[Rfam]
RNA sequence: AGCCGUGUGAUGAAUACAAAGCGAACUAUUCUUUCGCCUUUUACUAAAGAAUACCGUGUAUUCGUCACUUACAGCGGCAUACGCUUAUUUUUGGAAGAGUCUUCCUUAAGAGGACUC
Dot-bracket structure: ..((((.(((((((((((........((((((((...........))))))))...)))))))))))......))))...................((((((.........))))))
Numbered sequence: 001a002g003c004c005g006u007g008u009g010a011u012g013a014a015u016a017c018a019a020a021g022c023g024a025a026c027u028a029u030u031c032u033u034u035c036g037c038c039u040u041u042u043a044c045u046a047a048a049g050a051a052u053a054c055c056g057u058g059u060a061u062u063c064g065u066c067a068c069u070u071a072c073a074g075c076g077g078c079a080u081a082c083g084c085u086u087a088u089u090u091u092u093g094g095a096a097g098a099g100u101c102u103u104c105c106u107u108a109a110g111a112g113g114a115c116u117c
Stems, first nucleotide, its partner, number of pairs: 003077004008067011027053008097117006